mir-19 microRNA precursor family: a 79-nucleotide RNA sequence from Cyprinus carpio. A search with the family's covariance model found it, with a score of 68 bits. The organism belongs to Cyprinus carpio, within Eukaryota. The literature on the family includes a 2001 paper in Science by Lagos-Quintana et al., "Identification of novel genes coding for small expressed RNAs". Its Rfam clan is "mir-19 clan".
[Rfam]
RNA sequence: AUGCGUGGAGAGUUUUGCAGGAUUGCAUCCAGCUUUAUUUCAACAUGCUGUGCAAAUCCACGCAAAACUCGCUACACCA
Numbered sequence: 001a002u003g004c005g006u007g008g009a010g011a012g013u014u015u016u017g018c019a020g021g022a023u024u025g026c027a028u029c030c031a032g033c034u035u036u037a038u039u040u041c042a043a044c045a046u047g048c049u050g051u052g053c054a055a056a057u058c059c060a061c062g063c064a065a066a067a068c069u070c071g072c073u074a075c076a077c078c079a
Base pairs, nucleotide, nucleotide: 003077005075006074007073008072010070011069012068013067014066015065016064017063018062020059021058023055024054025053026052027051028050031049032048033047